The family of this 93-nucleotide RNA from Legionella geestiana is "TPP riboswitch aptamer (THI element)".

[Rfam]
RNA sequence: UUAGAUGGCGCGGGGUGUCCGUAACAGGGCUGAGAGUUACCCGUCGAACUUGAACUGGUUCAUACCAGCGUAAGGACGCCUUCCAAAAGUCUU
Numbered sequence: 001u002u003a004g005a006u007g008g009c010g011c012g013g014g015g016u017g018u019c020c021g022u023a024a025c026a027g028g029g030c031u032g033a034g035a036g037u038u039a040c041c042c043g044u045c046g047a048a049c050u051u052g053a054a055c056u057g058g059u060u061c062a063u064a065c066c067a068g069c070g071u072a073a074g075g076a077c078g079c080c081u082u083c084c085a086a087a088a089g090u091c092u093u
Stems, first nucleotide, its partner, number of pairs: 007080004011043004017030004049074004055068004